[Rfam]
RNA sequence: GUGUUAGUUGCGGCUCAUCGUAAGGCAGUUUGCUUGUAGUUCGCCAGCUGCCUAGCGAAGGGCAACAAGUUACAG
Number, nucleotide and partner (000 for none) at each position: 001g000002u000003g073004u072005u000006a070007g000008u068009u067010g066011c000012g000013g063014c062015u061016c060017a000018u058019c057020g056021u055022a000023a000024g052025g051026c050027a049028g000029u000030u000031u000032g048033c047034u046035u000036g000037u000038a000039g000040u000041u000042c000043g000044c000045c000046a034047g033048c032049u027050g026051c025052c024053u000054a000055g021056c020057g019058a018059a000060g016061g015062g014063c013064a000065a000066c010067a009068a008069g000070u006071u000072a004073c003074a000075g000